[Rfam]
RNA sequence: AUUGGCAGGAAUGAUGAAUCAAUUAGAUGUACGAGGUUACCUUAUGAGCUAAAAUUUUGAGGCAUACAAUUGUCUGACUUGCCAAU
Numbered sequence: 001a002u003u004g005g006c007a008g009g010a011a012u013g014a015u016g017a018a019u020c021a022a023u024u025a026g027a028u029g030u031a032c033g034a035g036g037u038u039a040c041c042u043u044a045u046g047a048g049c050u051a052a053a054a055u056u057u058u059g060a061g062g063c064a065u066a067c068a069a070u071u072g073u074c075u076g077a078c079u080u081g082c083c084a085a086u
Stems, first nucleotide, its partner, number of pairs: 001086009
RNA: Small nucleolar RNA Z266